[Rfam]
RNA sequence: UCAGGCGGCUGGACGGCUGCUCUUCAUCGGGUAACCGGUGAAGGGAGGAAAGUCCGGGCUCCAUGAAAGCACGGUGCCGGGUAACGCCCGGCGGGGGUAACCCCAGGGAAAGCGCCACAGAAAGUAUACCGCCCGGACAUGUUCGCAUUAUGGGUAAGGGUGAAAGGGUGCGGUAAGAGCGCACCGCGAUCCUGGCAACAGGAACGGCAUGGCAAGCCCCACCGGGAGCAAAACCAAAUAGGGGUGGCUUAUGGUCGGUUUUCAGACUGUCACCCGGGUCGGUUGCGCGAGGCGUUCAGCGAUGAACGUCCCAGAUGAAUGGUCGUCGAACCUGCAUUGCAGGGGAACAGAACCCGGCUUACAGGCCGCCUGACACU
Dot-bracket structure: ((((((((((((((((((.(((((((((........)))))))))....[[[.[[[[[((((....[[[..((((((((((.....)))))(((((....)))).)((...(((((............(((((((.(..........)..)))))..)).......((((((.......))))))(((.(((((....))))).)).)..)))..)))))))))))))...((((......((((((.....((((...]]]..)))).)))))).....))))......((((((((....))))))))..........))))))).........................]]]]]]]].).))))))))))....
The record is a 377-nucleotide RNA sequence from Alphaproteobacteria bacterium HT1-32, which matches "Bacterial RNase P class A" in Rfam. Pairs were carried over by alignment from the consensus structure, which is taken from published work. Rfam classes the family as a ribozyme.